[Rfam]
RNA sequence: UUCAAUCUUCGGGGCAGGGUGUAAUUCCCGACCGGCGGUAAAUAGCUGUUCGCUAUAAGUCCGCGACCCACAGUUUAUUUAGAUUGUGGUUGACCUGGUGGAAACCCAGGACCGACAGUUAAAGUCUGGAUGAGAGAAGAUGUCG
Numbered sequence: 001u002u003c004a005a006u007c008u009u010c011g012g013g014g015c016a017g018g019g020u021g022u023a024a025u026u027c028c029c030g031a032c033c034g035g036c037g038g039u040a041a042a043u044a045g046c047u048g049u050u051c052g053c054u055a056u057a058a059g060u061c062c063g064c065g066a067c068c069c070a071c072a073g074u075u076u077a078u079u080u081a082g083a084u085u086g087u088g089g090u091u092g093a094c095c096u097g098g099u100g101g102a103a104a105c106c107c108a109g110g111a112c113c114g115a116c117a118g119u120u121a122a123a124g125u126c127u128g129g130a131u132g133a134g135a136g137a138a139g140a141u142g143u144c145g
Stems, first nucleotide, its partner, number of pairs: 005141006017029003031125002033114002035064004059112002068089002094110005116128003
RNA: FMN riboswitch aptamer (RFN element)